A member of the RNA family "Metazoan signal recognition particle RNA" from Mortierella alpina, 298 nucleotides long. From the family's description: The signal recognition particle (SRP) is a universally conserved ribonucleoprotein. It is involved in the co-translational targeting of proteins to membranes. The eukaryotic SRP consists of a 300-nucleotide 7S RNA and six proteins: SRPs 72, 68, 54, 19, 14, and 9. On this family, see Wild et al., Curr Opin Struct Biol 2002: "Towards the structure of the mammalian signal recognition particle". The source organism's lineage runs through Eukaryota, Opisthokonta, Mortierellomycotina, Mortierellomycetes and Mortierella. The family's consensus secondary structure is taken from published work.

RNA sequence: UCGGGCAGUUGUCAGCAAACUGGUGUGAGUCUAGCUUUGGACCGAUAUCUGGAUGAUGGAUCGCUUGAGACUGGAGUUACGUGUGCUGGGGUUACUUAGGUAUAUCGCCCACUCGAAGCUUGGUGUUGACAUUCUGUCUUCGACGUAAGUCUUUGACAGGAGGCCAUUAAAUAACUCUCUAUCGCAGGCCAGCAAUGGAACAGCGAGAAUGAGGGUAGCACUGGGCAGUCGGGUGGAUCACGAGAAUUAGUUUGGACCCUAGUACAUGCCAGCCUUGGGUAGAGACUACCAUCCGCUU
Numbered sequence: 001u002c003g004g005g006c007a008g009u010u011g012u013c014a015g016c017a018a019a020c021u022g023g024u025g026u027g028a029g030u031c032u033a034g035c036u037u038u039g040g041a042c043c044g045a046u047a048u049c050u051g052g053a054u055g056a057u058g059g060a061u062c063g064c065u066u067g068a069g070a071c072u073g074g075a076g077u078u079a080c081g082u083g084u085g086c087u088g089g090g091g092u093u094a095c096u097u098a099g100g101u102a103u104a105u106c107g108c109c110c111a112c113u114c115g116a117a118g119c120u121u122g123g124u125g126u127u128g129a130c131a132u133u134c135u136g137u138c139u140u141c142g143a144c145g146u147a148a149g150u151c152u153u154u155g156a157c158a159g160g161a162g163g164c165c166a167u168u169a170a171a172u173a174a175c176u177c178u179c180u181a182u183c184g185c186a187g188g189c190c191a192g193c194a195a196u197g198g199a200a201c202a203g204c205g206a207g208a209a210u211g212a213g214g215g216u217a218g219c220a221c222u223g224g225g226c227a228g229u230c231g232g233g234u235g236g237a238u239c240a241c242g243a244g245a246a247u248u249a250g251u252u253u254g255g256a257c258c259c260u261a262g263u264a265c266a267u268g269c270c271a272g273c274c275u276u277g278g279g280u281a282g283a284g285a286c287u288a289c290c291a292u293c294c295g296c297u298u
Stems, first nucleotide, its partner, number of pairs: 001045003004024001006022005029042003050295006057288002061285002064282002067276003071272004080268008089259005095254001098251001105243003109236002112233005118226009127166002130163001132161007142151003167173001174216006189198003